[Rfam]
RNA sequence: ACCUUUUUGGUUGCAGUCUGAUUUAUCAGGCUGAUGGCUGGUGACUAUUUUUGGUCACCAGCCU
Numbered sequence: 001a002c003c004u005u006u007u008u009g010g011u012u013g014c015a016g017u018c019u020g021a022u023u024u025a026u027c028a029g030g031c032u033g034a035u036g037g038c039u040g041g042u043g044a045c046u047a048u049u050u051u052u053g054g055u056c057a058c059c060a061g062c063c064u
Base pairs, nucleotide, nucleotide: 014033015032016031017030018029036063037062038061039060040059041058042057043056044055045054

A member of the RNA family "Pseudomonas sRNA P26" from [Pantoea] beijingensis, 64 nucleotides long. By type it is a non-coding RNA gene. About the family: This small RNA (sRNA) was computationally identified in the genome of the opportunistic pathogen Pseudomonas aeruginosa and its expression verified by northern blot analysis. P26 is conserved across many Gammaproteobacteria species and appears to be consistently located between the DNA directed RNA polymerase (beta subunit) and 50S ribosomal protein L7/L12 genes. Lineage of the source: Bacteria > Pseudomonadati > Gammaproteobacteria > Erwiniaceae > Erwinia. The base pairs follow the family's consensus structure, which was predicted with RNAalifold.